The family of this 74-nucleotide RNA from Ornithorhynchus anatinus is "mir-92 microRNA precursor family". Rfam 15.1 lists 1,347 matches to the family in 653 species. Rfam describes the family as follows. This family represents the microRNA precursor mir-92.

RNA sequence: CUUCCUACGCGGGUUGGGAUCAUUUGCAGUGCUCUAUGUAUGGUAUCGCACUCGUCCCGGCCCGUCGAGGGUCC
Numbered sequence: 001c002u003u004c005c006u007a008c009g010c011g012g013g014u015u016g017g018g019a020u021c022a023u024u025u026g027c028a029g030u031g032c033u034c035u036a037u038g039u040a041u042g043g044u045a046u047c048g049c050a051c052u053c054g055u056c057c058c059g060g061c062c063c064g065u066c067g068a069g070g071g072u073c074c
Base pairs, nucleotide, nucleotide: 004070005069006068009065010064011063012062013061014060016058017057018056019055020054022052024050026049027048029046030045031044032043033042